Shown here is a 220-nucleotide sequence from Pseudomonas rhizosphaerae, a member of the family "sucA-II RNA". It scores 133 bits against the family's covariance model. The family's consensus secondary structure is taken from published work.
RNA sequence: UUGCAGCGCGGGAUCGAUCCUGCGCUGCAACGAAAACCCGAGCGUGGCUGCGUAUGGCUCCGCUUUUACUUUCGAAGAUACAAGACCAGCAGGGGCUCCGGGCUGGUACCCGGACUACCAGCGUACAACUCUGAGGUGGCUUGCACGGUCGCUGUACACGGACCGCGUCAAUACGCCCCUGGUGUGAGCGCCGGUGGUGUCCCCUAACCGAGGGUGACCA
Number, nucleotide and partner (000 for none) at each position: 001u030002u029003g028004c027005a026006g025007c024008g023009c022010g021011g020012g019013a018014u000015c000016g000017a000018u013019c012020c011021u010022g009023c008024g007025c006026u005027g004028c003029a002030a001031c000032g000033a000034a000035a000036a000037c000038c000039c000040g065041a064042g063043c062044g061045u000046g000047g058048c057049u056050g000051c000052g000053u000054a000055u000056g049057g048058c047059u000060c000061c044062g043063c042064u041065u040066u000067u000068a000069c000070u000071u000072u000073c000074g000075a000076a000077g000078a000079u000080a000081c000082a000083a000084g000085a000086c000087c000088a000089g000090c000091a205092g204093g203094g202095g201096c199097u114098c113099c112100g111101g110102g109103c000104u000105g000106g000107u000108a000109c102110c101111c100112g099113g098114a097115c197116u196117a195118c194119c193120a000121g191122c190123g189124u000125a000126c186127a185128a183129c182130u181131c000132u000133g000134a000135g177136g176137u175138g174139g172140c000141u170142u000143g168144c000145a000146c000147g164148g163149u162150c161151g000152c000153u000154g000155u000156a000157c000158a000159c000160g000161g150162a149163c148164c147165g000166c000167g000168u143169c000170a141171a000172u139173a000174c138175g137176c136177c135178c000179c000180u000181g130182g129183u128184g000185u127186g126187a000188g000189c123190g122191c121192c000193g119194g118195u117196g116197g115198u000199g096200u000201c095202c094203c093204c092205u091206a000207a000208c000209c000210g000211a000212g000213g000214g000215u000216g000217a000218c000219c000220a000